[Rfam]
mir-9/mir-79 microRNA precursor family: an 81-nucleotide RNA from Aedes aegypti. The family has 214 seed sequences and 5,647 matches in Rfam 15.1. Its family is annotated with miRNA-mediated post-transcriptional gene silencing and RISC complex in the Gene Ontology.
RNA sequence: UUUAUUGGAUCUUUGGUGAUUUUAGCUGUAUGCUGAUACGUUUCUGAUUGCAUAUAGCUUUAUCACCAAAAACCUAAUGAA
Numbered sequence: 001u002u003u004a005u006u007g008g009a010u011c012u013u014u015g016g017u018g019a020u021u022u023u024a025g026c027u028g029u030a031u032g033c034u035g036a037u038a039c040g041u042u043u044c045u046g047a048u049u050g051c052a053u054a055u056a057g058c059u060u061u062a063u064c065a066c067c068a069a070a071a072a073c074c075u076a077a078u079g080a081a
Base pairs, nucleotide, nucleotide: 001081002080003079004078005077007075008074010072012070013069014068015067016066017065018064019063020062024059025058026057027056029054030053031052032051033050

Source information: On this family, see Lagos-Quintana et al., Science 2001: "Identification of novel genes coding for small expressed RNAs". NCBI's taxonomy places the organism under Eukaryota, Panarthropoda, Mandibulata, Eumetabola, Stegomyia. It is one of the family's seed sequences.